[Rfam]
RNA: SAM-III riboswitch aptamer (SMK box)
RNA sequence: AUAAGUUAUGAGUUCCCGAUAGGAUUCACUUAACGGUGAAGAAGCCUUGUAACCUAAAAAAAUAAACAGGGGGAAAACUAAUG
Dot-bracket structure: ............(((((...(((.(((((......)))))....))).....((..............)))))))........
Numbered sequence: 001a002u003a004a005g006u007u008a009u010g011a012g013u014u015c016c017c018g019a020u021a022g023g024a025u026u027c028a029c030u031u032a033a034c035g036g037u038g039a040a041g042a043a044g045c046c047u048u049g050u051a052a053c054c055u056a057a058a059a060a061a062a063u064a065a066a067c068a069g070g071g072g073g074a075a076a077a078c079u080a081a082u083g
Stems, first nucleotide, its partner, number of pairs: 013075005021047003025040005053070002